[Rfam]
Rfam assigns this 115-nucleotide sequence to the family "Mahella-1 RNA".
RNA sequence: CCCGAGCUGUCGUAAAAGCCCAACCCAAUGGGUCUUUCCUGCAAAGGUUGGCAGCAAAUAACGCCAUGCGCACGCAGGGGCGUUAUGUUGUGCCGGCUGAAAAAUAGCCGGCGUA
Numbered sequence: 001c002c003c004g005a006g007c008u009g010u011c012g013u014a015a016a017a018g019c020c021c022a023a024c025c026c027a028a029u030g031g032g033u034c035u036u037u038c039c040u041g042c043a044a045a046g047g048u049u050g051g052c053a054g055c056a057a058a059u060a061a062c063g064c065c066a067u068g069c070g071c072a073c074g075c076a077g078g079g080g081c082g083u084u085a086u087g088u089u090g091u092g093c094c095g096g097c098u099g100a101a102a103a104a105u106a107g108c109c110g111g112c113g114u115a
Base pairs, nucleotide, nucleotide: 032048033047034046035045036044037043058086059085060084061083062082063081064080065079067076068075069074092112093111094110095109096108097107098106